Rfam assigns this 170-nucleotide RNA from Mycobacterium intermedium to the family "Group II catalytic intron D1-D4-3".
Lineage of the source: Bacteria > Bacillati > Actinomycetota > Mycobacteriaceae > Mycobacterium simiae complex.
Group II introns are found in rRNA, tRNA and mRNA of organelles in fungi, plants and protists, and also in mRNA in bacteria.
It scores 132 bits against the family's covariance model.

[Rfam]
RNA sequence: GUCACCGUGAGGUGGGGUGGGAAGGAAGCCGGAGACGAAGCCCUGCACCGAGGGACACGAACCGUAUAGAAGGCAUGCCGGUUGGGGUGAGCCAGCAACAGAUGGUGAAGCCCGUUCCACCGAAGCGGCCGGUGUGUAAAUGCGGCGGCGGCAGGGUGAAAGUGGAUGUU
Numbered sequence: 001g002u003c004a005c006c007g008u009g010a011g012g013u014g015g016g017g018u019g020g021g022a023a024g025g026a027a028g029c030c031g032g033a034g035a036c037g038a039a040g041c042c043c044u045g046c047a048c049c050g051a052g053g054g055a056c057a058c059g060a061a062c063c064g065u066a067u068a069g070a071a072g073g074c075a076u077g078c079c080g081g082u083u084g085g086g087g088u089g090a091g092c093c094a095g096c097a098a099c100a101g102a103u104g105g106u107g108a109a110g111c112c113c114g115u116u117c118c119a120c121c122g123a124a125g126c127g128g129c130c131g132g133u134g135u136g137u138a139a140a141u142g143c144g145g146c147g148g149c150g151g152c153a154g155g156g157u158g159a160a161a162g163u164g165g166a167u168g169u170u
Base pairs, nucleotide, nucleotide: 002015003014004013005012006011028170030168031167035163036162040157041156042155043154044153045152046150048148049147050146062145063144064143065142066141067140073137074136075135077133078132079131080130081129082128083127085113086112087111088110091106092105093104094103